[Rfam]
RNA: Bacterial RNase P class A
RNA sequence: UAAGUAAGACAGACAAUCGCGGCUGUCUGCGAGAGCAGCAGACGAGGAAAGUCCGGGCUUCACAGGGCAGGAUGCCGGAUAACGUCCGGUGGAGGUGACUCCAAGGAAAGUGCAACAGAAAUAAACCGCCUGUCAAUGCCUCUUAGGCGAAUGUCUUAAGAGUUGACAGGUAAGGGUGGAAAGGCAGUGUAAGAGACUACCGCCUUGCCGGUAACGGGAAGGGCACAUGUAAACCCCAUCCGAAGCAAGACUAAACGCAGGCUAUGUGGCUGCCCGUCACGCCUUAGGUAAGUCGCUUGAACCUGGCGGCGACGCCAGGUCUAGAUAGAUGAUUGUCCAACGACAUAACCCGGCUUAUCGUCUUGCUUAACCG
Number, nucleotide and partner (000 for none) at each position: 001u369002a368003a367004g366005u365006a364007a363008g362009a361010c360011a358012g337013a336014c335015a334016a333017u332018c331019g000020c044021g043022g000023c041024u040025g039026u000027c038028u037029g036030c000031g000032a000033g000034a000035g000036c029037a028038g027039c025040a024041g023042a000043c021044g020045a000046g000047g000048a000049a356050a355051g354052u000053c353054c352055g351056g350057g349058c245059u244060u243061c242062a000063c000064a000065g275066g274067g273068c272069a000070g241071g240072a239073u238074g237075c089076c088077g087078g086079a085080u000081a000082a000083c000084g000085u079086c078087c077088g076089g075090u104091g102092g101093a100094g099095g000096u000097g000098a000099c094100u093101c092102c091103a000104a090105g236106g235107a000108a000109a000110g234111u233112g230113c229114a228115a000116c000117a000118g000119a000120a000121a000122u000123a000124a000125a000126c175127c174128g171129c170130c169131u168132g167133u166134c165135a164136a163137u000138g000139c000140c000141u000142c000143u000144u000145a000146g000147g000148c000149g000150a000151a000152u000153g000154u000155c000156u000157u000158a000159a000160g000161a000162g000163u136164u135165g134166a133167c132168a131169g130170g129171u128172a000173a000174g127175g126176g000177u000178g000179g000180a000181a000182a000183g201184g200185c000186a198187g197188u196189g000190u000191a000192a000193g000194a000195g000196a188197c187198u186199a000200c184201c183202g224203c222204c221205u220206u219207g000208c217209c216210g215211g000212u000213a000214a000215c210216g209217g208218g000219a206220a205221g204222g203223g000224c202225a000226c000227a000228u114229g113230u112231a000232a000233a111234c110235c106236c105237c074238a073239u072240c071241c070242g061243a060244a059245g058246c000247a000248a000249g294250a293251c292252u291253a000254a000255a000256c000257g000258c000259a284260g283261g282262c281263u000264a000265u000266g280267u279268g278269g277270c276271u000272g068273c067274c066275c065276g270277u269278c268279a267280c266281g262282c261283c260284u259285u000286a000287g000288g000289u000290a000291a252292g251293u250294c249295g000296c000297u000298u000299g000300a000301a320302c319303c318304u317305g316306g315307c314308g313309g000310c000311g000312a000313c308314g307315c306316c305317a304318g303319g302320u301321c000322u000323a000324g000325a000326u000327a000328g000329a000330u000331g018332a017333u016334u015335g014336u013337c012338c000339a000340a000341c000342g000343a000344c000345a000346u000347a000348a000349c057350c056351c055352g054353g053354c051355u050356u049357a000358u011359c000360g010361u009362c008363u007364u006365g005366c004367u003368u002369a001370a000371c000372c000373g000